[Rfam]
RNA sequence: AAUGAAUGAUGACAAAAAUGUUUCGGGCCCAAAUGAUCUGUAGUGAUUAUACCCUUGCAUUUUUUCUGACAUU
Numbered sequence: 001a002a003u004g005a006a007u008g009a010u011g012a013c014a015a016a017a018a019u020g021u022u023u024c025g026g027g028c029c030c031a032a033a034u035g036a037u038c039u040g041u042a043g044u045g046a047u048u049a050u051a052c053c054c055u056u057g058c059a060u061u062u063u064u065u066c067u068g069a070c071a072u073u
Base pairs, nucleotide, nucleotide: 001073002072003071004070
A member of the RNA family "Small nucleolar RNA SNORD73" from Vombatus ursinus, 73 nucleotides long. Pairs were carried over by alignment from the consensus structure, which was predicted with PFOLD. Taxonomically the source falls in Vombatus (Eukaryota, Opisthokonta, Eumetazoa, Mammalia). By type it is a C/D-box small nucleolar RNA. It scores 79 bits against the family's covariance model. For this family Rfam cites "A novel snoRNA (U73) is encoded within the introns of the human and mouse ribosomal protein S3a genes" (Rebane et al., Gene, 1998). Its family is annotated with RNA processing and nucleolus in the Gene Ontology.